Rfam assigns this 161-nucleotide RNA sequence from Oryctolagus cuniculus to the family "Hovlinc ribozyme (hominin vlincRNA-located)".
The base pairs follow the family's consensus structure, which is taken from published work.
The source organism's lineage runs through Eukaryota, Deuterostomia, Craniata, Amniota and Oryctolagus.
For this family Rfam cites "Hovlinc is a recently evolved class of ribozyme found in human lncRNA" (Chen et al., Nat Chem Biol, 2021).
Rfam describes the family as follows. Hovlinc is a recently evolved class of self-cleaving ribozyme found in a very long non coding RNA (vlincRNA) in hominins, including humans (genus Homo), and chimpanzees and bonobos (genus Pan), but missing in gorillas (genus Gorilla).
RNA sequence: ACCUGGAGUAAGCCCAGGAGCAUAGUGCUUCAGAGCUAAUGUACUUACCCAAGAUGAGUGUUCCUCUCUCUUAAAACACUAACUCAUGAUUCUCAUGACCUGUGUGUGGAGAGAUCUGGACUAGGAGUUAGGAGACCUCUGACUUUGCCAAACCAUACUAA
Numbered sequence: 001a002c003c004u005g006g007a008g009u010a011a012g013c014c015c016a017g018g019a020g021c022a023u024a025g026u027g028c029u030u031c032a033g034a035g036c037u038a039a040u041g042u043a044c045u046u047a048c049c050c051a052a053g054a055u056g057a058g059u060g061u062u063c064c065u066c067u068c069u070c071u072u073a074a075a076a077c078a079c080u081a082a083c084u085c086a087u088g089a090u091u092c093u094c095a096u097g098a099c100c101u102g103u104g105u106g107u108g109g110a111g112a113g114a115u116c117u118g119g120a121c122u123a124g125g126a127g128u129u130a131g132g133a134g135a136c137c138u139c140u141g142a143c144u145u146u147g148c149c150a151a152a153c154c155a156u157a158c159u160a161a
Stems, first nucleotide, its partner, number of pairs: 011159002017153001025146001027144001030142006042074001044125004053064001065114006084098006099134001101132001103130002107126001
Dot-bracket structure: ..........((....(.......(.(..((((((......[.((((.....(..........)((((((...].........((((((...))))))[.[.[[..[.)))))).......))))]..]].].]..)))))).).)......)....))..